[Rfam]
RNA: DABA-DC-AT RNA
Organism: Photobacterium lipolyticum
RNA sequence: GCAAUCUCAGGGGGGAACUAUCACUGAGACAUAUGCGUUGUGAUGAACUCAGGCCGAUUGUGUCACAGCGUGCCGUAGGUACUAAUGAAACGUUCAUUAGUAGAAGGGCAUUAAUAAGCGCAGACCUGACAAGAAUAAUGCAGGCGCAUAUUGAAGGAACCCAACA
Numbered sequence: 001g002c003a004a005u006c007u008c009a010g011g012g013g014g015g016a017a018c019u020a021u022c023a024c025u026g027a028g029a030c031a032u033a034u035g036c037g038u039u040g041u042g043a044u045g046a047a048c049u050c051a052g053g054c055c056g057a058u059u060g061u062g063u064c065a066c067a068g069c070g071u072g073c074c075g076u077a078g079g080u081a082c083u084a085a086u087g088a089a090a091c092g093u094u095c096a097u098u099a100g101u102a103g104a105a106g107g108g109c110a111u112u113a114a115u116a117a118g119c120g121c122a123g124a125c126c127u128g129a130c131a132a133g134a135a136u137a138a139u140g141c142a143g144g145c146g147c148a149u150a151u152u153g154a155a156g157g158a159a160c161c162c163a164a165c166a
Stems, first nucleotide, its partner, number of pairs: 006028005035071008045061001047059001080102010121144001